[Rfam]
RNA sequence: UCCAGUGGUGGUCAGCUGUCUUUGUCAUCUCCAUGUCUGUGACAGUGUUACACUGCUGGAAGAUAAAAGUACUGUCCAUGUUAGCUGUCUAUCAGCUCCUCUGUUCUGGAGGCAGCUGAUACCAGUGGGGGACAGUAUUGUGCUUCUUUGAGAGUGUGCUAAGCAGUCAAUAUCCUGCUCAGUGCUAGACUAGAAGCUUACACA
Numbered sequence: 001u002c003c004a005g006u007g008g009u010g011g012u013c014a015g016c017u018g019u020c021u022u023u024g025u026c027a028u029c030u031c032c033a034u035g036u037c038u039g040u041g042a043c044a045g046u047g048u049u050a051c052a053c054u055g056c057u058g059g060a061a062g063a064u065a066a067a068a069g070u071a072c073u074g075u076c077c078a079u080g081u082u083a084g085c086u087g088u089c090u091a092u093c094a095g096c097u098c099c100u101c102u103g104u105u106c107u108g109g110a111g112g113c114a115g116c117u118g119a120u121a122c123c124a125g126u127g128g129g130g131g132a133c134a135g136u137a138u139u140g141u142g143c144u145u146c147u148u149u150g151a152g153a154g155u156g157u158g159c160u161a162a163g164c165a166g167u168c169a170a171u172a173u174c175c176u177g178c179u180c181a182g183u184g185c186u187a188g189a190c191u192a193g194a195a196g197c198u199u200a201c202a203c204a
Stems, first nucleotide, its partner, number of pairs: 001060009011051002015046006021039001024036002069138009085127001088124001090121005096115002098112005140199001142197006156185003160181001162179005
RNA: Small nucleolar RNA SNORA74
Organism: Podarcis muralis